[Rfam]
RNA sequence: CGAGACAACUCUUUCUAAGGAACUCGGCAAAAUAGCCCUGUAACUUCAGGAGAAGGGGUGCCCCCUCGCAAAAGGGGGUCGCAGUGACCAGGCACGGGCGACUGUUUACCAAAAACACAGGUCUCCGCAAAGUCGUAAGACCAUGUAUGGGGACUGACGCCUGCCCAGUGCCGGAAGGUCAAGGAAGUUGGUGAACUGAUGACAGGGAAGCCGGCGACCGAAGCCCCGGUGAACGACGGCCGUAACUAUAACGGUCCUAAGGUAGCGAAAUUCCUUGUCGGGUAAGUUUCGACCCGCACGAAAGGCGUAACGAUCUAGGCACUGUCUCGGAGAGAGACUCG
Numbered sequence: 001c002g003a004g005a006c007a008a009c010u011c012u013u014u015c016u017a018a019g020g021a022a023c024u025c026g027g028c029a030a031a032a033u034a035g036c037c038c039u040g041u042a043a044c045u046u047c048a049g050g051a052g053a054a055g056g057g058g059u060g061c062c063c064c065c066u067c068g069c070a071a072a073a074g075g076g077g078g079u080c081g082c083a084g085u086g087a088c089c090a091g092g093c094a095c096g097g098g099c100g101a102c103u104g105u106u107u108a109c110c111a112a113a114a115a116c117a118c119a120g121g122u123c124u125c126c127g128c129a130a131a132g133u134c135g136u137a138a139g140a141c142c143a144u145g146u147a148u149g150g151g152g153a154c155u156g157a158c159g160c161c162u163g164c165c166c167a168g169u170g171c172c173g174g175a176a177g178g179u180c181a182a183g184g185a186a187g188u189u190g191g192u193g194a195a196c197u198g199a200u201g202a203c204a205g206g207g208a209a210g211c212c213g214g215c216g217a218c219c220g221a222a223g224c225c226c227c228g229g230u231g232a233a234c235g236a237c238g239g240c241c242g243u244a245a246c247u248a249u250a251a252c253g254g255u256c257c258u259a260a261g262g263u264a265g266c267g268a269a270a271u272u273c274c275u276u277g278u279c280g281g282g283u284a285a286g287u288u289u290c291g292a293c294c295c296g297c298a299c300g301a302a303a304g305g306c307g308u309a310a311c312g313a314u315c316u317a318g319g320c321a322c323u324g325u326c327u328c329g330g331a332g333a334g335a336g337a338c339u340c341g
Stems, first nucleotide, its partner, number of pairs: 001341004009336008018327003035059005044049001060079007080084001092320002096316003099312002103117003120155008128145001132141003158307004163237001165235001168234002170230005177225003183219002187215006196205003238256006257261001267294001277293006
A member of the RNA family "Bacterial large subunit ribosomal RNA", 341 nucleotides of a longer RNA.